[Rfam]
RNA sequence: GGUUCCGAGGAGCGCUGCGAGGUGCCGCAUGAGCCGGCCCCCAGGCUCGGAAAGCCACGGCUCCGCUGCUGUGGCCGUUUGAACGGCGCUCACCCGAA
Numbered sequence: 001g002g003u004u005c006c007g008a009g010g011a012g013c014g015c016u017g018c019g020a021g022g023u024g025c026c027g028c029a030u031g032a033g034c035c036g037g038c039c040c041c042c043a044g045g046c047u048c049g050g051a052a053a054g055c056c057a058c059g060g061c062u063c064c065g066c067u068g069c070u071g072u073g074g075c076c077g078u079u080u081g082a083a084c085g086g087c088g089c090u091c092a093c094c095c096g097a098a
Base pairs, nucleotide, nucleotide: 003052004051005050006049007048008047021040022039024038025037026036027035
Annotation: SAH (S-adenosyl-L-homocysteine) riboswitch aptamer: a 98-nucleotide sequence from Pseudothauera lacus. The family has 52 seed sequences and 1,354 matches in Rfam 15.1. The family's consensus secondary structure is taken from published work.